[Rfam]
RNA sequence: UUUUGAAUGAUGAUUUAAAGUGUCAUUACUUCUUCACUCCUAUUAUGAGUGAAGUAUAACAGUCUGGCAAAC
Numbered sequence: 001u002u003u004u005g006a007a008u009g010a011u012g013a014u015u016u017a018a019a020g021u022g023u024c025a026u027u028a029c030u031u032c033u034u035c036a037c038u039c040c041u042a043u044u045a046u047g048a049g050u051g052a053a054g055u056a057u058a059a060c061a062g063u064c065u066g067g068c069a070a071a072c
Stems, first nucleotide, its partner, number of pairs: 002071004

This 72-nucleotide RNA from Marmota monax belongs to the Rfam family "Small nucleolar RNA SNORD101".
The family's consensus secondary structure was predicted with PFOLD.
The match comes from Rfam's covariance-model search (61 bits).
NCBI's taxonomy places the organism under Eukaryota, Bilateria, Sarcopterygii, Rodentia, Marmota.
The family has 26 seed sequences and 658 matches in Rfam 15.1.
Its Rfam clan is "SNORD101 clan".